[Rfam]
RNA sequence: AGUGAAUCUUUGAGGCCAUCACAGAAGUGUUCACAGUGCAGCCAUGUCAGAUUCCAAAGAAACUGCGAAUUUUGCU
Numbered sequence: 001a002g003u004g005a006a007u008c009u010u011u012g013a014g015g016c017c018a019u020c021a022c023a024g025a026a027g028u029g030u031u032c033a034c035a036g037u038g039c040a041g042c043c044a045u046g047u048c049a050g051a052u053u054c055c056a057a058a059g060a061a062a063c064u065g066c067g068a069a070u071u072u073u074g075c076u
Stems, first nucleotide, its partner, number of pairs: 014043003022074005027039003048065003052061003
A member of the RNA family "Mammalian CPEB3 ribozyme" from Crocodylus porosus, 76 nucleotides long. Rfam's curators write: The mammalian CPEB3 ribozyme is a self cleaving RNA located in the second intron of the CPEB3 gene which belongs to a family of genes regulating messenger RNA polyadenylation. Its family is annotated with RNA nuclease activity in the Gene Ontology.